The family of this 164-nucleotide sequence from Oryctolagus cuniculus is "U1 spliceosomal RNA". About the family: U1 is a small nuclear RNA (snRNA) component of the spliceosome (involved in pre-mRNA splicing). The literature on the family includes a 1997 paper in Nucleic Acids Res by Zwieb, "The uRNA database". The family's RNA type in Rfam is spliceosomal small nuclear RNA.

RNA sequence: AUACUUAUCUUGCAGGGGAGGUCCCAUGAUCACCAAGGUGGUUUGCCCAGGGCCAGGCUCAUCCAUUGCACUCCAAAUGUGCUGACCUCUGCAGUUUCCCCAAAUGUGGGAAACUUGACUGCAGAAUUUGUGGUAGUGGGGAACUGCGUUCGCACUCUCCCCUA
Numbered sequence: 001a002u003a004c005u006u007a008u009c010u011u012g013c014a015g016g017g018g019a020g021g022u023c024c025c026a027u028g029a030u031c032a033c034c035a036a037g038g039u040g041g042u043u044u045g046c047c048c049a050g051g052g053c054c055a056g057g058c059u060c061a062u063c064c065a066u067u068g069c070a071c072u073c074c075a076a077a078u079g080u081g082c083u084g085a086c087c088u089c090u091g092c093a094g095u096u097u098c099c100c101c102a103a104a105u106g107u108g109g110g111a112a113a114c115u116u117g118a119c120u121g122c123a124g125a126a127u128u129u130g131u132g133g134u135a136g137u138g139g140g141g142a143a144c145u146g147c148g149u150u151c152g153c154a155c156u157c158u159c160c161c162c163u164a
Stems, first nucleotide, its partner, number of pairs: 012122004016048003020044002024041004049090004056083003060079003092117003095113003099109002138162004143158001146155001148153001